The family of this 70-nucleotide RNA sequence from Acidithiobacillus sulfuriphilus is "int-alpA RNA". The source organism's lineage runs through Bacteria, Pseudomonadati, Acidithiobacillales, Acidithiobacillaceae and Acidithiobacillus. About the family: Acidobacteria (1 example), Planctomycetes (1 example), Proteobacteria. The match comes from Rfam's covariance-model search (51 bits).

[Rfam]
RNA sequence: CCAUGCCCUAGGGUAGCUCCCGAAAGGCCGGAACCUUCACCGGCUUGGGCAUGGCACCUAUUCCCGAAGG
Numbered sequence: 001c002c003a004u005g006c007c008c009u010a011g012g013g014u015a016g017c018u019c020c021c022g023a024a025a026g027g028c029c030g031g032a033a034c035c036u037u038c039a040c041c042g043g044c045u046u047g048g049g050c051a052u053g054g055c056a057c058c059u060a061u062u063c064c065c066g067a068a069g070g
Stems, first nucleotide, its partner, number of pairs: 001054008011021003027044005034070005
Record summary: The base pairs follow the family's consensus structure, which is taken from published work.